RNA sequence: GGUUUAUAAAGAAGAGGUGAGAGACAGGCUCGGUGACCCUCUGGCAGCCCCUUAAAUGGAAGGUGCCAAAUCCUGACUUAUUAAAGUAAAUAUAAAUC
Number, nucleotide and partner (000 for none) at each position: 001g098002g097003u096004u095005u094006a093007u092008a091009a000010a000011g000012a000013a042014g041015a040016g039017g038018u000019g000020a000021g031022a030023g029024a000025c075026a074027g073028g072029c023030u022031c021032g000033g000034u000035g000036a000037c000038c017039c016040u015041c014042u013043g067044g066045c065046a064047g000048c063049c062050c059051c058052u000053u000054a000055a000056a000057u000058g051059g050060a000061a000062g049063g048064u046065g045066c044067c043068a000069a000070a000071u090072c028073c027074u026075g025076a087077c086078u085079u084080a000081u000082u000083a000084a079085a078086g077087u076088a000089a000090a071091u008092a007093u006094a005095a004096a003097u002098c001
The family of this 98-nucleotide RNA sequence from Membranihabitans marinus is "SAM riboswitch aptamer (S box leader)". The match comes from Rfam's covariance-model search (76 bits).